A member of the RNA family "MIR5565 microRNA precursor family" from Miscanthus lutarioriparius, 109 nucleotides long.
[Rfam]
RNA sequence: GUUGUCAAAUUCACCUCAAUUCACAUAUGUUUGGUUGGAUUGGGGUGAAAUUUAAUUUAAGUUCCACUCCAAUUCACUCCAACAUACGUGAAUUGAUGUGAAUACGACU
Numbered sequence: 001g002u003u004g005u006c007a008a009a010u011u012c013a014c015c016u017c018a019a020u021u022c023a024c025a026u027a028u029g030u031u032u033g034g035u036u037g038g039a040u041u042g043g044g045g046u047g048a049a050a051u052u053u054a055a056u057u058u059a060a061g062u063u064c065c066a067c068u069c070c071a072a073u074u075c076a077c078u079c080c081a082a083c084a085u086a087c088g089u090g091a092a093u094u095g096a097u098g099u100g101a102a103u104a105c106g107a108c109u
Stems, first nucleotide, its partner, number of pairs: 004108003009103006016096009026086006036076008045067003